[Rfam]
RNA sequence: CUUGAGCGAGCCCAGCCAGAGCGGCUCCGUGCGCCCCUGCCCGUACUCGGCCAGCAGUGCCUGGGCCUC
Numbered sequence: 001c002u003u004g005a006g007c008g009a010g011c012c013c014a015g016c017c018a019g020a021g022c023g024g025c026u027c028c029g030u031g032c033g034c035c036c037c038u039g040c041c042c043g044u045a046c047u048c049g050g051c052c053a054g055c056a057g058u059g060c061c062u063g064g065g066c067c068u069c
Stems, first nucleotide, its partner, number of pairs: 014026004027063001032059002037054003041050003